[Rfam]
RNA sequence: CUGUUUGUUUAGUUAUCCAGAUAAUUACUGGAGUAACGUUAGCGAUUAAUGGGUUGCUAUAAAAUCUUACUAAUUGCUGAAACAUCCAAGCCUUUUACAAUAAAUUUGGAUAAUCAGCAGGAAAUCUAUGAAAUAUUUAUAUAUUUUUUGGAAUCUUCAGAGACUAUACGUAAGAAAUAUAUUGUUUAUAUGAGAAGUAUAUUUAAUAAUAUGUUAAGAGAUAGUCCCAUCUUACUUUAAAAAGUAAG
Numbered sequence: 001c002u003g004u005u006u007g008u009u010u011a012g013u014u015a016u017c018c019a020g021a022u023a024a025u026u027a028c029u030g031g032a033g034u035a036a037c038g039u040u041a042g043c044g045a046u047u048a049a050u051g052g053g054u055u056g057c058u059a060u061a062a063a064a065u066c067u068u069a070c071u072a073a074u075u076g077c078u079g080a081a082a083c084a085u086c087c088a089a090g091c092c093u094u095u096u097a098c099a100a101u102a103a104a105u106u107u108g109g110a111u112a113a114u115c116a117g118c119a120g121g122a123a124a125u126c127u128a129u130g131a132a133a134u135a136u137u138u139a140u141a142u143a144u145u146u147u148u149u150g151g152a153a154u155c156u157u158c159a160g161a162g163a164c165u166a167u168a169c170g171u172a173a174g175a176a177a178u179a180u181a182u183u184g185u186u187u188a189u190a191u192g193a194g195a196a197g198u199a200u201a202u203u204u205a206a207u208a209a210u211a212u213g214u215u216a217a218g219a220g221a222u223a224g225u226c227c228c229a230u231c232u233u234a235c236u237u238u239a240a241a242a243a244g245u246a247a248g
Stems, first nucleotide, its partner, number of pairs: 005035001008032006039048001041046001065175004070170001075119006085110005120156002125151002128148001132145005160227001162226005178213009233246005
Rfam assigns this 248-nucleotide sequence from Monosporascus sp. CRB-9-2 to the family "Group I catalytic intron". Rfam 15.1 lists 5,602 matches to the family in 1,395 species. For this family Rfam cites "Crystal structure of a group I ribozyme domain: principles of RNA packing" (Cate et al., Science, 1996). Gene Ontology term of the family: Group I intron splicing. The base pairs follow the family's consensus structure, which is taken from published work. Group I catalytic introns are large self-splicing ribozymes. They catalyse their own excision from mRNA, tRNA and rRNA precursors in a wide range of organisms. The core secondary structure consists of 9 paired regions (P1-P9). It scores 75 bits against the family's covariance model.